This 75-nucleotide RNA from Acipenser ruthenus belongs to the Rfam family "Small nucleolar RNA SNORD81". It is annotated as a C/D-box small nucleolar RNA. The family's consensus secondary structure was predicted with PFOLD. For this family Rfam cites "Classification of gas5 as a multi-small-nucleolar-RNA (snoRNA) host gene and a member of the 5'-terminal oligopyrimidine gene family reveals common features of snoRNA host genes" (Smith and Steitz, Mol Cell Biol, 1998).
RNA sequence: UGGGAUAAAUGAUGAAUAUAUUCUUGAACUCUCUAACUGAUUUGUUGAUGACAGACAGAAUUCUGAUUUAUCCCA
Numbered sequence: 001u002g003g004g005a006u007a008a009a010u011g012a013u014g015a016a017u018a019u020a021u022u023c024u025u026g027a028a029c030u031c032u033c034u035a036a037c038u039g040a041u042u043u044g045u046u047g048a049u050g051a052c053a054g055a056c057a058g059a060a061u062u063c064u065g066a067u068u069u070a071u072c073c074c075a
Base pairs, nucleotide, nucleotide: 001075002074003073004072005071006070007069